[Rfam]
RNA sequence: GGGAGUAGAUAGGGGCUGGUGUCUCUACAGGUCUUCAAAACCUAGUUAUGGUGCUAAUACCAUCAUGGGUGGGUUCGAUUCCCACAUAUUCCC
Dot-bracket structure: ((((((((..((((((....))))))..((((.......))))...(((((...........)))))..((((.......))))).)))))))
RNA: Selenocysteine transfer RNA